RNA sequence: GCGAGAUGAAGAUAAAAUUCAUGGUCUGUCAAUCCACUGAAUUCUGUGAUGUUACUCUUGAAUCAUCAUGUUCUGAUCGC
Numbered sequence: 001g002c003g004a005g006a007u008g009a010a011g012a013u014a015a016a017a018u019u020c021a022u023g024g025u026c027u028g029u030c031a032a033u034c035c036a037c038u039g040a041a042u043u044c045u046g047u048g049a050u051g052u053u054a055c056u057c058u059u060g061a062a063u064c065a066u067c068a069u070g071u072u073c074u075g076a077u078c079g080c
Stems, first nucleotide, its partner, number of pairs: 001080004